[Rfam]
RNA sequence: AUUGAAGCGAUCUUUAUGACUUGUAUAAGCUGAUAAUCAGGUUCAGCGUCUCUACCGGGCACCUAAUGCCUGACUACAGGAGAAGAGAUGACUAUU
Dot-bracket structure: ...................((((((...(((((.........)))))........((((((.....))))))..))))))................
RNA: Purine riboswitch aptamer